[Rfam]
RNA: Small Cajal body specific RNA 16
RNA sequence: AUGGUCUGUGGAAAGUCUCCUCUGUUGUUGAACUUGUCCAGUUGUGAGUGCAGCCAUGUACCAGGCAGCCCAAGCCUAACAUAAAAUAAAUUCCCAGGAGAAGUCUUUCCUGGGUUUUGAAUUUGCAGUAAUAGGUGUGAGAAUUCUAGCAGCAGUUUGUUGAUGUGAGAUUAGAAAUGAAAGCUAAA
Numbered sequence: 001a002u003g004g005u006c007u008g009u010g011g012a013a014a015g016u017c018u019c020c021u022c023u024g025u026u027g028u029u030g031a032a033c034u035u036g037u038c039c040a041g042u043u044g045u046g047a048g049u050g051c052a053g054c055c056a057u058g059u060a061c062c063a064g065g066c067a068g069c070c071c072a073a074g075c076c077u078a079a080c081a082u083a084a085a086a087u088a089a090a091u092u093c094c095c096a097g098g099a100g101a102a103g104u105c106u107u108u109c110c111u112g113g114g115u116u117u118u119g120a121a122u123u124u125g126c127a128g129u130a131a132u133a134g135g136u137g138u139g140a141g142a143a144u145u146c147u148a149g150c151a152g153c154a155g156u157u158u159g160u161u162g163a164u165g166u167g168a169g170a171u172u173a174g175a176a177a178u179g180a181a182a183g184c185u186a187a188a
Base pairs, nucleotide, nucleotide: 004080005079008076015070017068018067019065020064021063024061025060027054028053029052030051032049033048034047093114094113095112097109098108099107100106122183123182124181126179127178129176132173133172138167139166140164143161145159148157149156150155